[Rfam]
Rfam assigns this 86-nucleotide RNA from Pan troglodytes to the family "mir-515 microRNA precursor family". A reference for the family is Bentwich et al. (2005), "Identification of hundreds of conserved and nonconserved human microRNAs", Nat Genet. Lineage of the source: Eukaryota > Vertebrata > Gnathostomata > Catarrhini > Pan. Pairs were carried over by alignment from the consensus structure, which was predicted with RNAalifold. The sequence is in the family's curated seed alignment.

RNA sequence: CCCAUGCUGUGACCCUCUAGAGGGAAGCACUUUCUGUUGUCUGAAAGAAACCAAAGCGCUUCCCUUUGGAGCAUUACGGUUUGAGA
Dot-bracket structure: (.((.(((((((..(((.((((((((((.((((....(...........)..)))).)))))))))).)))..))))))).)).).